[Rfam]
Annotation
This 39-nucleotide RNA belongs to the Rfam family "L31-Firmicutes ribosomal protein leader". Rfam's curators put it in the seed alignment. For this family Rfam cites "Discovery of 20 novel ribosomal leader candidates in bacteria and archaea" (Eckert and Weinberg, BMC Microbiol, 2020). It is annotated as a cis-regulatory leader.

RNA sequence: CUUUGUCGUAGGUUUGUGAUAUAAACAAGGCAAAAGGAG
Numbered sequence: 001c002u003u004u005g006u007c008g009u010a011g012g013u014u015u016g017u018g019a020u021a022u023a024a025a026c027a028a029g030g031c032a033a034a035a036g037g038a039g
Base pairs, nucleotide, nucleotide: 001030002029003028004027005026006019007018008017009016010015